[Rfam]
RNA sequence: GCAUAUUUCACGUUUGUGCGUGAAUCUGACAACCCUUCUCAUCAUCAUAAUGAUGAUUGAUGGGUGUGUGUCUGUUAGAUUCACGCACAAACUCGUAAUAUGUUU
Numbered sequence: 001g002c003a004u005a006u007u008u009c010a011c012g013u014u015u016g017u018g019c020g021u022g023a024a025u026c027u028g029a030c031a032a033c034c035c036u037u038c039u040c041a042u043c044a045u046c047a048u049a050a051u052g053a054u055g056a057u058u059g060a061u062g063g064g065u066g067u068g069u070g071u072c073u074g075u076u077a078g079a080u081u082c083a084c085g086c087a088c089a090a091a092c093u094c095g096u097a098a099u100a101u102g103u104u105u
Stems, first nucleotide, its partner, number of pairs: 001103003005099003012092015028076003042060001
RNA: MIR403 microRNA precursor family